[Rfam]
The record is a 139-nucleotide RNA from Ananas comosus, which matches "Small nucleolar RNA F1/F2/snoR5a" in Rfam. Rfam's curators write: This family contains F1, F2 and snoR5a sequences, all of which are members of the the H/ACA class of snoRNA that guide the sites of modification of uridines to pseudouridines. The source organism's lineage runs through Eukaryota, Embryophyta, Petrosaviidae, Poales and Ananas. Its family is annotated with RNA processing and nucleolus in the Gene Ontology. Pairs were carried over by alignment from the consensus structure, which was predicted with PFOLD.
RNA sequence: GAAUGCCAUAAGGUAUCUGAUGCUCGGCAUAUAUAGUUGCUGUGUGUCUCGUUAGAAUGGCAGAUAUUGAGUGGAACAGGUCUUGCGACACUGGUUGCUCCUUCAUGAGCUUCUUGUUACUUUAAUCCUGUUUACAUUG
Numbered sequence: 001g002a003a004u005g006c007c008a009u010a011a012g013g014u015a016u017c018u019g020a021u022g023c024u025c026g027g028c029a030u031a032u033a034u035a036g037u038u039g040c041u042g043u044g045u046g047u048c049u050c051g052u053u054a055g056a057a058u059g060g061c062a063g064a065u066a067u068u069g070a071g072u073g074g075a076a077c078a079g080g081u082c083u084u085g086c087g088a089c090a091c092u093g094g095u096u097g098c099u100c101c102u103u104c105a106u107g108a109g110c111u112u113c114u115u116g117u118u119a120c121u122u123u124a125a126u127c128c129u130g131u132u133u134a135c136a137u138u139g
Stems, first nucleotide, its partner, number of pairs: 004062006019048005025042005031037001075132005090117002093114002097110003